[Rfam]
A member of the RNA family "Plastid-psbA-1 3UTR RNA" from Gossypium stocksii, 118 nucleotides long. Clan: Plastid-psbA 3UTR RNA clan.
RNA sequence: CCGAACCCGACCCGGCCCGGGGCAUGCACAACUCUAGUUUGAGUGUAUAUGAUUUUUUUGGAAAUAAAGGAGCAAUAACAAUUUCUUGUUCUAGUAAGAGUGUUGGUAUUGCUCCUUU
Dot-bracket structure: .................................................................((((((((((((..((((((((........))))).)))..))))))))))))
The organism belongs to Gossypium, within Eukaryota. About the family: Plastid psbA-1 is a non-coding RNA (ncRNA) present in plastids. It was identified in inverted repeat sequences in the 3 prime untranslate region (3UTR) of photosystem II quinone-binding protein (psbA). A search with the family's covariance model found it, with a score of 63 bits.